[Rfam]
RNA: Archaeal small subunit ribosomal RNA, nucleotides 502 to 860
Organism: Halorutilus salinus
RNA sequence: GGCCUAAAGCGUCCGUAGCCUGCCGUACGGGUCCGUCGGGAAAUCCGCCCGCUCAACGGGCGGACGUCCGGCGGAAACCAUACGGCUUGGGACCAGAGGACCCGAGGGGUACGUCGGGGGUAGGAGUGAAAUCCCGAGAUCCUCGACGGACCGCCGGUGGCGAAAGCGCCUCGGGAAGAUGGAUCCGACGGUCAGGGACGAAAGCUUGGGUCUCGAACCGGAUUAGAUACCCGGGUAGUCCAAGCUGUAAACGAUGCUCGCUAGGUGUGGCGUAGGCUACGAGCCUGCGCUGUGCCAAAGGGAAGCCACGAAGCGAGCCGCCUGGGAAGUACGUCUGCAAGGAUGAAACUUAAAGGAAU
Numbered sequence: 001g002g003c004c005u006a007a008a009g010c011g012u013c014c015g016u017a018g019c020c021u022g023c024c025g026u027a028c029g030g031g032u033c034c035g036u037c038g039g040g041a042a043a044u045c046c047g048c049c050c051g052c053u054c055a056a057c058g059g060g061c062g063g064a065c066g067u068c069c070g071g072c073g074g075a076a077a078c079c080a081u082a083c084g085g086c087u088u089g090g091g092a093c094c095a096g097a098g099g100a101c102c103c104g105a106g107g108g109g110u111a112c113g114u115c116g117g118g119g120g121u122a123g124g125a126g127u128g129a130a131a132u133c134c135c136g137a138g139a140u141c142c143u144c145g146a147c148g149g150a151c152c153g154c155c156g157g158u159g160g161c162g163a164a165a166g167c168g169c170c171u172c173g174g175g176a177a178g179a180u181g182g183a184u185c186c187g188a189c190g191g192u193c194a195g196g197g198a199c200g201a202a203a204g205c206u207u208g209g210g211u212c213u214c215g216a217a218c219c220g221g222a223u224u225a226g227a228u229a230c231c232c233g234g235g236u237a238g239u240c241c242a243a244g245c246u247g248u249a250a251a252c253g254a255u256g257c258u259c260g261c262u263a264g265g266u267g268u269g270g271c272g273u274a275g276g277c278u279a280c281g282a283g284c285c286u287g288c289g290c291u292g293u294g295c296c297a298a299a300g301g302g303a304a305g306c307c308a309c310g311a312a313g314c315g316a317g318c319c320g321c322c323u324g325g326g327a328a329g330u331a332c333g334u335c336u337g338c339a340a341g342g343a344u345g346a347a348a349c350u351u352a353a354a355g356g357a358a359u
Stems, first nucleotide, its partner, number of pairs: 001322003009319001011199004018192003022086006030079002032075009045063007090186003093182003101175007108152002112148008123134003160167002204245006214238001218234004256318006264296014300307002324351003333344004